[Rfam]
RNA sequence: UGCUUACCGAUGAUGGUGAAAAUAAAAUGUCUGAACAAAUGAAUCUCUGUGAUAUGAGUUGUUUCUCUGAGGUAAGCA
Numbered sequence: 001u002g003c004u005u006a007c008c009g010a011u012g013a014u015g016g017u018g019a020a021a022a023u024a025a026a027a028u029g030u031c032u033g034a035a036c037a038a039a040u041g042a043a044u045c046u047c048u049g050u051g052a053u054a055u056g057a058g059u060u061g062u063u064u065c066u067c068u069g070a071g072g073u074a075a076g077c078a
Base pairs, nucleotide, nucleotide: 002077003076004075005074006073007072008071
Dot-bracket structure: .(((((((..............................................................))))))).
Rfam assigns this 78-nucleotide RNA sequence from Menidia menidia to the family "Small nucleolar RNA SNORD72". The base pairs follow the family's consensus structure. About the family: snoRNA HBII-240 belongs to the CD family of snoRNAs. It is the human orthologue of the mouse MBII-240 and is predicted to guide 2'O-ribose methylation of the large 28S rRNA at residue U4590. For this family Rfam cites "RNomics: an experimental approach that identifies 201 candidates for novel, small, non-messenger RNAs in mouse" (Huttenhofer et al., EMBO J, 2001).